Source information
Rfam assigns this 82-nucleotide sequence from Danio rerio to the family "mir-31 microRNA precursor family". Clan: mir-31 microRNA precursor family. Taxonomically the source falls in Danio (Eukaryota, Neopterygii, Cypriniphysae, Cypriniformes).
RNA sequence: AAGUGCAGAAAUGGCAAUAUGGAGGCAUAGCAGGCCCAUAAACAUUAACAGCUAUGCCAACAUCUUGCCAUCUCUUCUCUUC
Numbered sequence: 001a002a003g004u005g006c007a008g009a010a011a012u013g014g015c016a017a018u019a020u021g022g023a024g025g026c027a028u029a030g031c032a033g034g035c036c037c038a039u040a041a042a043c044a045u046u047a048a049c050a051g052c053u054a055u056g057c058c059a060a061c062a063u064c065u066u067g068c069c070a071u072c073u074c075u076u077c078u079c080u081u082c
Stems, first nucleotide, its partner, number of pairs: 005077001007075003011071007019063003024058008